Rfam assigns this 505-nucleotide part of an RNA from Babesia ovis to the family "Eukaryotic large subunit ribosomal RNA".
The base pairs follow the family's consensus structure, which is taken from published work.

RNA sequence: UCUUCCGAAGUUUCCCUCAGGAUAGCUGGAAUCUCGGCGGCGUCUGCCCCGUGUCAGUUUUACCAGGUAAAGCCAAUGAUUAGAGGUAUCGGGGGGCCGUGCCCCUUGACCUAUUCUCAAACUUUAAAUUGGUAAGACCCCGGCGCUUGCUUCGCUGAAGCGGCGGGCCGAAUGUGGAUUCCAAGUGGGCCAUUUUUGGUAAGCAGAACUGGCGAUGAGGGCUGCACCUACCGCCGGGUUAAGGUGCCCAAAUGCCUGCUCAUCAGAUACCAUAAAAGGUGUUGGUUCAUUUAGACAGCAGGACGGUGGUCAUGGAAGUCGAAACCCGCUAAGGAGUGUGUAACAACUCACCUGCCGAAUGAACUUGCCCUGAAAAUGGAUGGCGCUCAAGCAGGCUACCGAGACCCGGCCAUUGGCGCUGGCGUGCCGCCAAUGUGUAGGAAGACGUGGGCGCUGCUCCGAAGCGCGGCGCGUGAGCCCGCGUGGAGCGCCGCCUAGUGCGGAU
Numbered sequence: 001u002c003u004u005c006c007g008a009a010g011u012u013u014c015c016c017u018c019a020g021g022a023u024a025g026c027u028g029g030a031a032u033c034u035c036g037g038c039g040g041c042g043u044c045u046g047c048c049c050c051g052u053g054u055c056a057g058u059u060u061u062a063c064c065a066g067g068u069a070a071a072g073c074c075a076a077u078g079a080u081u082a083g084a085g086g087u088a089u090c091g092g093g094g095g096g097c098c099g100u101g102c103c104c105c106u107u108g109a110c111c112u113a114u115u116c117u118c119a120a121a122c123u124u125u126a127a128a129u130u131g132g133u134a135a136g137a138c139c140c141c142g143g144c145g146c147u148u149g150c151u152u153c154g155c156u157g158a159a160g161c162g163g164c165g166g167g168c169c170g171a172a173u174g175u176g177g178a179u180u181c182c183a184a185g186u187g188g189g190c191c192a193u194u195u196u197u198g199g200u201a202a203g204c205a206g207a208a209c210u211g212g213c214g215a216u217g218a219g220g221g222c223u224g225c226a227c228c229u230a231c232c233g234c235c236g237g238g239u240u241a242a243g244g245u246g247c248c249c250a251a252a253u254g255c256c257u258g259c260u261c262a263u264c265a266g267a268u269a270c271c272a273u274a275a276a277a278g279g280u281g282u283u284g285g286u287u288c289a290u291u292u293a294g295a296c297a298g299c300a301g302g303a304c305g306g307u308g309g310u311c312a313u314g315g316a317a318g319u320c321g322a323a324a325c326c327c328g329c330u331a332a333g334g335a336g337u338g339u340g341u342a343a344c345a346a347c348u349c350a351c352c353u354g355c356c357g358a359a360u361g362a363a364c365u366u367g368c369c370c371u372g373a374a375a376a377u378g379g380a381u382g383g384c385g386c387u388c389a390a391g392c393a394g395g396c397u398a399c400c401g402a403g404a405c406c407c408g409g410c411c412a413u414u415g416g417c418g419c420u421g422g423c424g425u426g427c428c429g430c431c432a433a434u435g436u437g438u439a440g441g442a443a444g445a446c447g448u449g450g451g452c453g454c455u456g457c458u459c460c461g462a463a464g465c466g467c468g469g470c471g472c473g474u475g476a477g478c479c480c481g482c483g484u485g486g487a488g489c490g491c492c493g494c495c496u497a498g499u500g501c502g503g504a505u
Stems, first nucleotide, its partner, number of pairs: 001445006011024001013022003027183007058137008070125001071123002077119003082114001084112003089109006096102001140166003144162005189213004194208005218229003233410005239404001243400003252397001254396001257393003277371003281368002284365007298355005304328003310322002329333001334349001338347002411435008446500001448497006455490003464484002471478002

Gene Ontology terms of the family: structural constituent of ribosome and ribosome.